RNA sequence: AUAAGGUGAAGGAACAGGCAGAACUGUUCGUAUAUGUGGUGUGUUUGGGAGGACCGGCUUCAGGCGCACAGGAUUGCAGCCCUCUGUCAGAGAUUAAGCCGAUCACAUAUAAUGGAUUUAUUGCAAGGCUUUCAGCCUUGUUUUUUUU
Numbered sequence: 001a002u003a004a005g006g007u008g009a010a011g012g013a014a015c016a017g018g019c020a021g022a023a024c025u026g027u028u029c030g031u032a033u034a035u036g037u038g039g040u041g042u043g044u045u046u047g048g049g050a051g052g053a054c055c056g057g058c059u060u061c062a063g064g065c066g067c068a069c070a071g072g073a074u075u076g077c078a079g080c081c082c083u084c085u086g087u088c089a090g091a092g093a094u095u096a097a098g099c100c101g102a103u104c105a106c107a108u109a110u111a112a113u114g115g116a117u118u119u120a121u122u123g124c125a126a127g128g129c130u131u132u133c134a135g136c137c138u139u140g141u142u143u144u145u146u147u148u
Stems, first nucleotide, its partner, number of pairs: 004148003012029006035107004043054002045051001056100005063081003066077003083093003123141007
This 148-nucleotide RNA from Candidatus Tokpelaia hoelldobleri belongs to the Rfam family "Alphaproteobacterial sRNA ar9". Lineage of the source: Bacteria > Pseudomonadota > Alphaproteobacteria > Hyphomicrobiales > Candidatus Tokpelaia. It is annotated as a small RNA. A reference for the family is del Val et al. (2012), "A survey of sRNA families in alpha-proteobacteria", RNA Biol.